[Rfam]
RNA sequence: AAUUGGGAGAAGGGGUGCUUCCUGUAGCAAUCGGAAUGCGUGGAUGGCUGAGAACAAACCCUCAUCACCUGAACCGGAUAAUACCGGCGUAGGAAACUCUCCGUCUGACUAUCU
Numbered sequence: 001a002a003u004u005g006g007g008a009g010a011a012g013g014g015g016u017g018c019u020u021c022c023u024g025u026a027g028c029a030a031u032c033g034g035a036a037u038g039c040g041u042g043g044a045u046g047g048c049u050g051a052g053a054a055c056a057a058a059c060c061c062u063c064a065u066c067a068c069c070u071g072a073a074c075c076g077g078a079u080a081a082u083a084c085c086g087g088c089g090u091a092g093g094a095a096a097c098u099c100u101c102c103g104u105c106u107g108a109c110u111a112u113c114u
Base pairs, nucleotide, nucleotide: 006102007101008100009099010098011062012061013060014059016056017048018047019046068093069092070091071090074087075086076085077084

Source information: The family of this 114-nucleotide RNA sequence from Porphyromonas gingivalis is "TPP riboswitch aptamer (THI element)". The family's consensus secondary structure is taken from published work.